[Rfam]
RNA sequence: AGCUUUGCGCAGUGGCAGUAUCGUAGCCAAUGACGUUUAUCCGAGGUGCAAUUAUUGCUAUAAUCUGGCCCUAGUCUACCUGUUUAUAAUAUUUUUUCAACUUUCAUUCAUUCAUUGAUUCAUAUAUUUAUCCAGUAAAUAUGUGUUGAGUGCCCACUC
Numbered sequence: 001a002g003c004u005u006u007g008c009g010c011a012g013u014g015g016c017a018g019u020a021u022c023g024u025a026g027c028c029a030a031u032g033a034c035g036u037u038u039a040u041c042c043g044a045g046g047u048g049c050a051a052u053u054a055u056u057g058c059u060a061u062a063a064u065c066u067g068g069c070c071c072u073a074g075u076c077u078a079c080c081u082g083u084u085u086a087u088a089a090u091a092u093u094u095u096u097u098c099a100a101c102u103u104u105c106a107u108u109c110a111u112u113c114a115u116u117g118a119u120u121c122a123u124a125u126a127u128u129u130a131u132c133c134a135g136u137a138a139a140u141a142u143g144u145g146u147u148g149a150g151u152g153c154c155c156a157c158u159c
Stems, first nucleotide, its partner, number of pairs: 020052002023049002026047003035041001080135003084130001086128001089125004148159004
The record is a 159-nucleotide RNA from Panthera tigris, which matches "U4 spliceosomal RNA" in Rfam. U4 small nuclear RNA (U4 snRNA) is a component of the major U2-dependent spliceosome. The family's RNA type in Rfam is spliceosomal small nuclear RNA. The match comes from Rfam's covariance-model search (47 bits).